[Rfam]
This 72-nucleotide RNA from Diaphorina citri belongs to the Rfam family "tRNA". Rfam classes the family as a transfer RNA. It scores 47 bits against the family's covariance model.
Nucleotides: 072
Base pairs, nucleotide, nucleotide: 001071003069004068005067006066010025011024012023013022027043028042029041030040031039048064049063050062051061052060
Number, partner (000 for none) and nucleotide at each position: 001071g002000c003069u004068c005067c006066c007000a008000u009000g010025g011024c012023g013022u014000a015000g016000u017000g018000g019000u020000u021000a022013a023012u024011g025010c026000g027043c028042c029041c030040g031039c032000c033000u034000u035000g036000c037000a038000c039031g040030c041029g042028g043027g044000a045000g046000a047000c048064c049063c050062g051061g052060g053000u054000u055000u056000g057000a058000u059000u060052c061051c062050c063049g064048g065000g066006g067005g068004g069003g070000u071001c072000a